[Rfam]
RNA sequence: CAGAAGAAUCGGCAAACCAGCUGGAAGGCUGCGACGCAAAGCUAAAGGGCCCAGACCGGGCAGCCAGCUGCACUU
Numbered sequence: 001c002a003g004a005a006g007a008a009u010c011g012g013c014a015a016a017c018c019a020g021c022u023g024g025a026a027g028g029c030u031g032c033g034a035c036g037c038a039a040a041g042c043u044a045a046a047g048g049g050c051c052c053a054g055a056c057c058g059g060g061c062a063g064c065c066a067g068c069u070g071c072a073c074u075u
Base pairs, nucleotide, nucleotide: 012037013036018031019030020029021028022027040069041068042067043066047065048064049061050060051059
The record is a 75-nucleotide sequence from Faecalibacterium duncaniae, which matches "c-di-GMP-I riboswitch aptamer" in Rfam. The source organism's lineage runs through Bacteria, Bacillota, Eubacteriales, Oscillospiraceae and Faecalibacterium. A search with the family's covariance model found it, with a score of 49 bits. Pairs were carried over by alignment from the consensus structure, which is taken from published work. Gene Ontology term of the family: cyclic-di-GMP binding.